[Rfam]
RNA sequence: GCAUGGAUGAAUUCUGCACUAGCUUUCCUCAGUAGCUGAUGCAGUCAGACACCAUGCCAGAGCAAAUUCCCUUUUUUCCACUGUGCCUGGUGUGCUUUUUUAUGGGAUGGGCAUGCCCUUGGAAGGGGAACACAU
Numbered sequence: 001g002c003a004u005g006g007a008u009g010a011a012u013u014c015u016g017c018a019c020u021a022g023c024u025u026u027c028c029u030c031a032g033u034a035g036c037u038g039a040u041g042c043a044g045u046c047a048g049a050c051a052c053c054a055u056g057c058c059a060g061a062g063c064a065a066a067u068u069c070c071c072u073u074u075u076u077u078c079c080a081c082u083g084u085g086c087c088u089g090g091u092g093u094g095c096u097u098u099u100u101u102a103u104g105g106g107a108u109g110g111g112c113a114u115g116c117c118c119u120u121g122g123a124a125g126g127g128g129a130a131c132a133c134a135u
Base pairs, nucleotide, nucleotide: 001057002056003055004054005053006052014044015043016042017041018040070128071127072126074125075124076123077122089117090116091115092114093113094112095111096110097109

This 135-nucleotide RNA sequence from Sylvietta virens belongs to the Rfam family "Small nucleolar RNA SNORA15". The family's RNA type in Rfam is H/ACA-box small nucleolar RNA. About the family: ACA15 is a member of the H/ACA class of snoRNA that guide the sites of modification of uridines to pseudouridines.